[Rfam]
Source information
Shown here is a 266-nucleotide sequence from Aliiruegeria lutimaris, a member of the family "Ruegeria trans44 sRNA". Rfam classes the family as a small RNA. The match comes from Rfam's covariance-model search (226 bits). Pairs were carried over by alignment from the consensus structure, which was predicted with RNAfold.
RNA sequence: CAUCGCGAUGCUCUUCAGUCAUGGAGAGAUCGUGAUGCGGAUACUGUCAAAGCGUCAGGUGAAAGAGUUGGUCCUGUACUCGCCUCAACACAUCGCACGGCUGGAAAAGGCCGGGAAAUUCCCACAGCGGGUGAUCCUUGGCCCCAACAGGGUGGGAUGGGUCGAACAAGAAGUGCUGGAUUGGCUCCAAGAGCGCCUCGAUUGCCGCGAGAAGACCUAAUCGACGCUCCCCAUGUGGGAGCCGGGUGGCUGGGCGUGCACAGCCC
Dot-bracket structure: (((((((((..((((((....)))))).))))))))).................(.((((....((((((((((..(((((....(.((.((((.(((..(((.....(((.(((.....(((.....)))....)))..)))....))).))).)))).)).).....).))))..)))))))))).......)))).).(.(((((............(((...(((((.....))))).)))))))).)(((.......))).